[Rfam]
RNA sequence: AAGGGGGUAGCCGAAAACCCAUGAUCAGAGUAGGCA
Number, nucleotide and partner (000 for none) at each position: 001a000002a000003g020004g019005g018006g000007g000008u000009a000010g035011c034012c033013g000014a000015a000016a000017a000018c005019c004020c003021a000022u000023g000024a000025u000026c000027a000028g000029a000030g000031u000032a000033g012034g011035c010036a000
Shown here is a 36-nucleotide RNA sequence from Chitinophaga agri, a member of the family "DUF805b RNA".
The source organism's lineage runs through Bacteria, Bacteroidota, Chitinophagales, Chitinophagaceae and Chitinophaga.
The base pairs follow the family's consensus structure, which is taken from published work.
The family is grouped with related families in Rfam's "DUF805 clan".
By type it is a cis-regulatory element.